[Rfam]
RNA sequence: AAGGAGCAAUACCAGCUCUCUUGAUCGAACAAGAGGUUGGUUAUUGCUCCCUUCCU
Numbered sequence: 001a002a003g004g005a006g007c008a009a010u011a012c013c014a015g016c017u018c019u020c021u022u023g024a025u026c027g028a029a030c031a032a033g034a035g036g037u038u039g040g041u042u043a044u045u046g047c048u049c050c051c052u053u054c055c056u
Base pairs, nucleotide, nucleotide: 001052003050004049005048006047007046008045009044010043011042013040018035019034020033021032022031023030

Plastid-psbA-3 3UTR RNA: a 56-nucleotide RNA from Dionaea muscipula.
Rfam's curators put it in the seed alignment.
Pairs were carried over by alignment from the consensus structure, which was predicted with LocARNA.
On this family, see Richter et al., Plant Commun 2023: "Retrograde signaling in plants: A critical review focusing on the GUN pathway and beyond".
Plastid psbA-3 is a non-coding RNA (ncRNA) present in plastids. It was identified in inverted repeat sequences in the 3 prime untranslate region (3UTR) of photosystem II quinone-binding protein (psbA).
NCBI's taxonomy places the organism under Eukaryota, Streptophyta, Streptophytina, Gunneridae, Dionaea.
By type it is a cis-regulatory element.